[Rfam]
Overview
The record is a 179-nucleotide sequence from Anoxybacillus flavithermus, which matches "Lysine riboswitch aptamer" in Rfam. NCBI's taxonomy places the organism under Bacteria, Bacillati, Bacillota, Bacilli, Anoxybacillus.

RNA sequence: AGAUGAGAUAGAGGUCGCGGCAAAUAAGAGUAGUUUCAUCGAGGCGCAGAGACGCCGAUGAAGUGGAAUGAAAGGAUUUGUCGCCGAAGUUUAUAGCGUGCUCUGGCGCUAUAAGCUGGGCCUGUGACCGAAUAGGUGCAGGACUGUCAUCGCGCAUGCGGUGGAGAGCUAUCGAUCUU
Numbered sequence: 001a002g003a004u005g006a007g008a009u010a011g012a013g014g015u016c017g018c019g020g021c022a023a024a025u026a027a028g029a030g031u032a033g034u035u036u037c038a039u040c041g042a043g044g045c046g047c048a049g050a051g052a053c054g055c056c057g058a059u060g061a062a063g064u065g066g067a068a069u070g071a072a073a074g075g076a077u078u079u080g081u082c083g084c085c086g087a088a089g090u091u092u093a094u095a096g097c098g099u100g101c102u103c104u105g106g107c108g109c110u111a112u113a114a115g116c117u118g119g120g121c122c123u124g125u126g127a128c129c130g131a132a133u134a135g136g137u138g139c140a141g142g143a144c145u146g147u148c149a150u151c152g153c154g155c156a157u158g159c160g161g162u163g164g165a166g167a168g169c170u171a172u173c174g175a176u177c178u179u
Base pairs, nucleotide, nucleotide: 007173008172009171010170011169017084018083019082020081021080022079023078024077025076033069034068035067036066037065038064039063088117089116090115091114092113093112094111095110096109097108098107099106118145119144121142122141123140124139125138126137128135147164148163149162150161151160152159153158